RNA sequence: AUAUAAGCAAAAAUUCACUUUUUAGAUUCAUUGAAUAAUGAAUGUAUUUGGACUAUAUUAUAAUCCAAAUACAUCAAUUAUUCAAUGAAUCUAAAAAGUCAAUUUUUGCUUAUAU
Numbered sequence: 001a002u003a004u005a006a007g008c009a010a011a012a013a014u015u016c017a018c019u020u021u022u023u024a025g026a027u028u029c030a031u032u033g034a035a036u037a038a039u040g041a042a043u044g045u046a047u048u049u050g051g052a053c054u055a056u057a058u059u060a061u062a063a064u065c066c067a068a069a070u071a072c073a074u075c076a077a078u079u080a081u082u083c084a085a086u087g088a089a090u091c092u093a094a095a096a097a098g099u100c101a102a103u104u105u106u107u108g109c110u111u112a113u114a115u
Stems, first nucleotide, its partner, number of pairs: 002114006009107005015101001017099009027089013042074003049067004